[Rfam]
RNA sequence: UCUAGAACUCGAGAUAUGGGCUGAACACUAAACAAUGUGUGGGCUAUAGGACAGAUUCAUACUUUUUCAUUGUUGCUACAAUUUGAACUUGAAAAUAGCCUUUUUAAAUCUUGGACUCCUAUAAAAGUUUUAGACCUAUGUCUUAGCUUUCCAUC
Numbered sequence: 001u002c003u004a005g006a007a008c009u010c011g012a013g014a015u016a017u018g019g020g021c022u023g024a025a026c027a028c029u030a031a032a033c034a035a036u037g038u039g040u041g042g043g044c045u046a047u048a049g050g051a052c053a054g055a056u057u058c059a060u061a062c063u064u065u066u067u068c069a070u071u072g073u074u075g076c077u078a079c080a081a082u083u084u085g086a087a088c089u090u091g092a093a094a095a096u097a098g099c100c101u102u103u104u105u106a107a108a109u110c111u112u113g114g115a116c117u118c119c120u121a122u123a124a125a126a127g128u129u130u131u132a133g134a135c136c137u138a139u140g141u142c143u144u145a146g147c148u149u150u151c152c153a154u155c
Stems, first nucleotide, its partner, number of pairs: 003153001005151003008146002011144010021133005027128003035122002041119003045115001048112004054105002062098002072088003